Background
This 90-nucleotide RNA from Neodiprion lecontei belongs to the Rfam family "mir-275 microRNA precursor family". It scores 69 bits against the family's covariance model.

[Rfam]
Nucleotides: 090
Base pairs, nucleotide, nucleotide: 009082010081011080012079014077016075017074018073019072020071021070022069030060031059033058036056037055038054039053
Number, partner (000 for none) and nucleotide at each position: 001000a002000u003000a004000g005000a006000g007000u008000u009082u010081g011080c012079g013000a014077c015000a016075c017074g018073c019072g020071u021070u022069a023000c024000c025000c026000a027000g028000g029000u030060a031059c032000u033058u034000u035000u036056g037055g038054c039053u040000g041000u042000g043000a044000u045000u046000u047000a048000u049000c050000g051000a052000a053039a054038g055037u056036c057000a058033g059031g060030u061000a062000c063000c064000u065000g066000a067000a068000g069022u070021a071020g072019c073018g074017c075016g076000c077014g078000c079012u080011g081010c082009g083000g084000g085000c086000u087000g088000u089000u090000g